[Rfam]
RNA sequence: ACCUGUUGCGGGCGGCGAUCAGAGGGUGCCCGCAGCACCAGACAGAACACCGUGCCACGGGGAACAUCGGGGCACUUCAGGGCGUU
Numbered sequence: 001a002c003c004u005g006u007u008g009c010g011g012g013c014g015g016c017g018a019u020c021a022g023a024g025g026g027u028g029c030c031c032g033c034a035g036c037a038c039c040a041g042a043c044a045g046a047a048c049a050c051c052g053u054g055c056c057a058c059g060g061g062g063a064a065c066a067u068c069g070g071g072g073c074a075c076u077u078c079a080g081g082g083c084g085u086u
Stems, first nucleotide, its partner, number of pairs: 004037011019025002052075005058069002
This 86-nucleotide RNA sequence from Streptomyces viridochromogenes belongs to the Rfam family "nrdJ RNA". NCBI's taxonomy places the organism under Bacteria, Bacillati, Kitasatosporales, Streptomycetaceae, Streptomyces viridochromogenes. It is annotated as a small RNA.